[Rfam]
RNA: Plastid-rps18 3UTR RNA
RNA sequence: UGCAAGUAUUUAUGAUUAAGAAGCAACUGCCUCUUGUGCAUAUUGUGUAUUAAUGU
Dot-bracket structure: ................(((((.((....)).)))))....................
Numbered sequence: 001u002g003c004a005a006g007u008a009u010u011u012a013u014g015a016u017u018a019a020g021a022a023g024c025a026a027c028u029g030c031c032u033c034u035u036g037u038g039c040a041u042a043u044u045g046u047g048u049a050u051u052a053a054u055g056u
Stems, first nucleotide, its partner, number of pairs: 017036005023030002